[Rfam]
RNA: Streptococcus sRNA SpR19
Organism: Streptococcus oralis
RNA sequence: GCGUUCUUCAAGCGAGCUUGGGGUAGUGGGAGCUAAGUAGAACAAGGUAAGAAACUGGCGCUUUCUGUCGUAUUUUUAAAAACAAUGAAGUAAUAAAUUAGGGUGGAACCGCGUUUCUGACG
Numbered sequence: 001g002c003g004u005u006c007u008u009c010a011a012g013c014g015a016g017c018u019u020g021g022g023g024u025a026g027u028g029g030g031a032g033c034u035a036a037g038u039a040g041a042a043c044a045a046g047g048u049a050a051g052a053a054a055c056u057g058g059c060g061c062u063u064u065c066u067g068u069c070g071u072a073u074u075u076u077u078a079a080a081a082a083c084a085a086u087g088a089a090g091u092a093a094u095a096a097a098u099u100a101g102g103g104u105g106g107a108a109c110c111g112c113g114u115u116u117c118u119g120a121c122g
Base pairs, nucleotide, nucleotide: 001112002111003109004108005107006106007105008103009102016071017070021066022065023064025062026061027060028059031056032055034053038049039048074090075089076088077087078086